[Rfam]
Notes:
This 66-nucleotide RNA sequence from Clunio marinus belongs to the Rfam family "mir-308 microRNA precursor family".
RNA sequence: UUCGCAGUAUAUUCCUUGUGAUAUUGGUGUCAUUUAAAUUAUCCAAUCACAGGAUUAUACUGUGAG
Numbered sequence: 001u002u003c004g005c006a007g008u009a010u011a012u013u014c015c016u017u018g019u020g021a022u023a024u025u026g027g028u029g030u031c032a033u034u035u036a037a038a039u040u041a042u043c044c045a046a047u048c049a050c051a052g053g054a055u056u057a058u059a060c061u062g063u064g065a066g
Base pairs, nucleotide, nucleotide: 001066002065003064004063005062006061007060008059009058010057011056015053016052017051018050019049020048024046025045026044027043

NCBI's taxonomy places the organism under Eukaryota, Opisthokonta, Dicondylia, Neoptera, Clunio. It scores 65 bits against the family's covariance model. Pairs were carried over by alignment from the consensus structure, which was predicted with RNAalifold.